[Rfam]
RNA: tRNA
RNA sequence: GCGGGAGUAGCUCAGUUGGUAGAGCGACAGCCUUCCAAGCUGUAGGUCGCGAGUUCGAACCUCGUCUCCCGCU
Numbered sequence: 001g002c003g004g005g006a007g008u009a010g011c012u013c014a015g016u017u018g019g020u021a022g023a024g025c026g027a028c029a030g031c032c033u034u035c036c037a038a039g040c041u042g043u044a045g046g047u048c049g050c051g052a053g054u055u056c057g058a059a060c061c062u063c064g065u066c067u068c069c070c071g072c073u
Base pairs, nucleotide, nucleotide: 001072002071003070004069005068006067007066010025011024012023013022027043028042029041030040031039049065050064051063052062053061
Dot-bracket structure: (((((((..((((........)))).(((((.......))))).....(((((.......)))))))))))).